[Rfam]
RNA sequence: AUCUUUUUUCUGUGAUAGAGAUUCUUUGCUUUUUGUUUCUAACAAAGCAAAGAAUCUCUAUCACAGAAAAAAGAC
Number, nucleotide and partner (000 for none) at each position: 001a000002u074003c073004u072005u071006u070007u069008u068009u067010c066011u065012g064013u063014g062015a061016u060017a059018g058019a057020g056021a055022u054023u053024c052025u051026u050027u049028g048029c047030u046031u045032u042033u041034u000035g000036u000037u000038u000039c000040u000041a033042a032043c000044a000045a031046a030047g029048c028049a027050a026051a025052g024053a023054a022055u021056c020057u019058c018059u017060a016061u015062c014063a013064c012065a011066g010067a009068a008069a007070a006071a005072a004073g003074a002075c000
This 75-nucleotide RNA from Homo sapiens belongs to the Rfam family "mir-4679 microRNA precursor family".
The base pairs follow the family's consensus structure, which was predicted with RNAalifold.
It is one of the family's seed sequences.
The family has 2 seed sequences and 10 matches in Rfam 15.1.